[Rfam]
RNA sequence: GCAUAUUGAUUAACGCCCGCAUUGUUGCGGGCCAUACGGAAG
Numbered sequence: 001g002c003a004u005a006u007u008g009a010u011u012a013a014c015g016c017c018c019g020c021a022u023u024g025u026u027g028c029g030g031g032c033c034a035u036a037c038g039g040a041a042g
Stems, first nucleotide, its partner, number of pairs: 015032007

Description
The family of this 42-nucleotide RNA from Biostraticola tofi is "nuoG RNA". Rfam classes the family as a cis-regulatory element. The base pairs follow the family's consensus structure, which is taken from published work.